[Rfam]
RNA sequence: AAACCUUUGCCACACUCUGGCCGUUACCGUUCAAUCUUCGGAUUGAUGUUAUGCUCCUACGGUAUGGGCCUAUUUUGGUGCAAAGAAGAAAAACACUUGACCCGCUACUCACCGCGAUAUUCUUUGGAGAUUUUUUUCUCGAGAUGGAUAUAGUGGUCCAUUUUGUGGUCUACAU
Numbered sequence: 001a002a003a004c005c006u007u008u009g010c011c012a013c014a015c016u017c018u019g020g021c022c023g024u025u026a027c028c029g030u031u032c033a034a035u036c037u038u039c040g041g042a043u044u045g046a047u048g049u050u051a052u053g054c055u056c057c058u059a060c061g062g063u064a065u066g067g068g069c070c071u072a073u074u075u076u077g078g079u080g081c082a083a084a085g086a087a088g089a090a091a092a093a094c095a096c097u098u099g100a101c102c103c104g105c106u107a108c109u110c111a112c113c114g115c116g117a118u119a120u121u122c123u124u125u126g127g128a129g130a131u132u133u134u135u136u137u138c139u140c141g142a143g144a145u146g147g148a149u150a151u152a153g154u155g156g157u158c159c160a161u162u163u164u165g166u167g168g169u170c171u172a173c174a175u
Stems, first nucleotide, its partner, number of pairs: 007083003019070004026063004031046006099170004112156004117151003121148003
RNA: Small nucleolar RNA snR80